Shown here is a 148-nucleotide RNA sequence from Drosophila busckii, a member of the family "Small nucleolar RNA psi18S-1377". Rfam describes the family as follows. psi18S-1377 is a member of the H/ACA class of snoRNA. This family is responsible for guiding the modification of uridines 1377 and 1279 to pseudouridine in Drosophila 18S rRNA. The family's consensus secondary structure was predicted with RNAalifold. It is annotated as an H/ACA-box small nucleolar RNA.
Nucleotides: 148
Base pairs, nucleotide, nucleotide: 002059003058004057005056006055007054010050011049016044017043018042019041020040021039022038090125091124092123093122097117098116099115100114
Number, partner (000 for none) and nucleotide at each position: 001000u002059c003058g004057u005056u006055c007054u008000u009000g010050u011049g012000u013000u014000a015000u016044u017043c018042a019041c020040u021039a022038a023000a024000u025000u026000u027000u028000a029000a030000c031000a032000u033000c034000u035000u036000g037000u038022u039021u040020a041019g042018u043017g044016a045000u046000u047000g048000u049011c050010a051000a052000a053000c054007a055006g056005a057004a058003c059002g060000u061000a062000g063000a064000g065000u066000a067000u068000a069000c070000a071000c072000c073000a074000a075000a076000g077000c078000g079000g080000a081000c082000u083000a084000c085000u086000c087000c088000a089000c090125a091124a092123u093122g094000c095000a096000g097117a098116g099115u100114c101000c102000a103000a104000c105000u106000u107000a108000a109000c110000c111000c112000a113000g114100g115099a116098c117097u118000u119000c120000u121000u122093c123092a124091u125090u126000a127000c128000a129000a130000a131000u132000c133000a134000c135000c136000g137000c138000u139000u140000a141000c142000a143000u144000c145000a146000u147000u148000a